[Rfam]
RNA sequence: GCUUGUUGCGGCGAUGGAUCCCGCCGGGGCUGUGCACCAGCCCGAACCGCCACUCGGCUGAUGGUUCCUGUCCGCUG
Numbered sequence: 001g002c003u004u005g006u007u008g009c010g011g012c013g014a015u016g017g018a019u020c021c022c023g024c025c026g027g028g029g030c031u032g033u034g035c036a037c038c039a040g041c042c043c044g045a046a047c048c049g050c051c052a053c054u055c056g057g058c059u060g061a062u063g064g065u066u067c068c069u070g071u072c073c074g075c076u077g
Stems, first nucleotide, its partner, number of pairs: 010025004016068003020064002049058003
Source information:
The record is a 77-nucleotide sequence from Quadrisphaera granulorum, which matches "Fluoride riboswitch aptamer (crcB RNA motif)" in Rfam. It scores 37 bits against the family's covariance model.